[Rfam]
RNA sequence: AUCGUGUGCGGCGAUUCGUAAUCCUUGCUUCGUGUUGCUCGCGAAUUUUAUCUUCUUCUGUCGAUUUGUUUGAGCGUCAAAGCAAGUAGAGACUAAUUACAAAAUCUUAGUGCCCAUUCAUGCAAAGACUACUCAUCUUUGCAAGAGGGCCGGUAUUUGUGACAUAC
Numbered sequence: 001a002u003c004g005u006g007u008g009c010g011g012c013g014a015u016u017c018g019u020a021a022u023c024c025u026u027g028c029u030u031c032g033u034g035u036u037g038c039u040c041g042c043g044a045a046u047u048u049u050a051u052c053u054u055c056u057u058c059u060g061u062c063g064a065u066u067u068g069u070u071u072g073a074g075c076g077u078c079a080a081a082g083c084a085a086g087u088a089g090a091g092a093c094u095a096a097u098u099a100c101a102a103a104a105u106c107u108u109a110g111u112g113c114c115c116a117u118u119c120a121u122g123c124a125a126a127g128a129c130u131a132c133u134c135a136u137c138u139u140u141g142c143a144a145g146a147g148g149g150c151c152g153g154u155a156u157u158u159g160u161g162a163c164a165u166a167c
Stems, first nucleotide, its partner, number of pairs: 022088001024086004037075005045065003098161006117147003121143004126138002
Rfam assigns this 167-nucleotide sequence from Umbelopsis vinacea to the family "small nucleolar RNA snR35". Taxonomically the source falls in Umbelopsis (Eukaryota, Opisthokonta, Mucoromycotina, Umbelopsidales). By type it is an H/ACA-box small nucleolar RNA. A search with the family's covariance model found it, with a score of 68 bits. The family has 4 seed sequences and 75 matches in Rfam 15.1. Gene Ontology terms of the family: RNA processing and nucleolus.